This 134-nucleotide sequence belongs to the Rfam family "RtT RNA".

RNA sequence: UACGUCUGUGGCCCGACAAGGAUGAGAACCUCCGGGGGCAGAGGUUCGACUCGAGCGCAGCGAGAGAACGUUGCUUUAGCAACGGCCCGCAGGGCGAGCCACGUAGUGGCGAAGUCAUCCUCUAUCACCGACCA
Numbered sequence: 001u002a003c004g005u006c007u008g009u010g011g012c013c014c015g016a017c018a019a020g021g022a023u024g025a026g027a028a029c030c031u032c033c034g035g036g037g038g039c040a041g042a043g044g045u046u047c048g049a050c051u052c053g054a055g056c057g058c059a060g061c062g063a064g065a066g067a068a069c070g071u072u073g074c075u076u077u078a079g080c081a082a083c084g085g086c087c088c089g090c091a092g093g094g095c096g097a098g099c100c101a102c103g104u105a106g107u108g109g110c111g112a113a114g115u116c117a118u119c120c121u122c123u124a125u126c127a128c129c130g131a132c133c134a
Stems, first nucleotide, its partner, number of pairs: 015125001019121003023117001033096002045091001047089002052062002069084006
It is annotated as a cis-regulatory element. Its family is annotated with cellular response to amino acid starvation in the Gene Ontology. From the family's description: This family represents a bacterial cis-regulatory element known as RtT RNA. The exact function of RtT is unknown although it is thought that it may be involved in changing the cellular response in relation to amino acid starvation.